[Rfam]
RNA sequence: AGGGCAGUGAUGAGAUGCGCAGGGGUACGGACCUCAGCUGAUGAUGGGAGCUGAGUGCUGGUGUCUGACUUCAGAUCAGUAGGCAUGUGGUCAACCGACUGAAGGACACUAGCAUGAAACUGUCGCAUUUACUGAGCCCU
Numbered sequence: 001a002g003g004g005c006a007g008u009g010a011u012g013a014g015a016u017g018c019g020c021a022g023g024g025g026u027a028c029g030g031a032c033c034u035c036a037g038c039u040g041a042u043g044a045u046g047g048g049a050g051c052u053g054a055g056u057g058c059u060g061g062u063g064u065c066u067g068a069c070u071u072c073a074g075a076u077c078a079g080u081a082g083g084c085a086u087g088u089g090g091u092c093a094a095c096c097g098a099c100u101g102a103a104g105g106a107c108a109c110u111a112g113c114a115u116g117a118a119a120c121u122g123u124c125g126c127a128u129u130u131a132c133u134g135a136g137c138c139c140u
Stems, first nucleotide, its partner, number of pairs: 001140005
Description
Shown here is a 140-nucleotide RNA from Ameiurus melas, a member of the family "Small nucleolar RNA SNORD94". On this family, see Galardi et al., Mol Cell Biol 2002: "Purified box C/D snoRNPs are able to reproduce site-specific 2'-O-methylation of target RNA in vitro". Lineage of the source: Eukaryota > Eumetazoa > Deuterostomia > Ostariophysi > Ameiurus. A search with the family's covariance model found it, with a score of 100 bits. The family has 21 seed sequences and 802 matches in Rfam 15.1. The family's consensus secondary structure was predicted with RNAalifold.